[Rfam]
RNA sequence: GGUGAGUGACAAAUCUGCCAAAGGCAGAUUUGAACGCUGCUUGCAGCGGCCCCAGCGGGGCGAGGCACACGCAAGUGUGCCGAGUAUCGCAGCCAACACACAUGCAAC
Numbered sequence: 001g002g003u004g005a006g007u008g009a010c011a012a013a014u015c016u017g018c019c020a021a022a023g024g025c026a027g028a029u030u031u032g033a034a035c036g037c038u039g040c041u042u043g044c045a046g047c048g049g050c051c052c053c054a055g056c057g058g059g060g061c062g063a064g065g066c067a068c069a070c071g072c073a074a075g076u077g078u079g080c081c082g083a084g085u086a087u088c089g090c091a092g093c094c095a096a097c098a099c100a101c102a103u104g105c106a107a108c
Stems, first nucleotide, its partner, number of pairs: 010032010035048005049061005064081007084105004
Dot-bracket structure: .........((((((((((...))))))))))..(((((....)))))(((((...)))))..(((((((....)))))))..((((..............))))...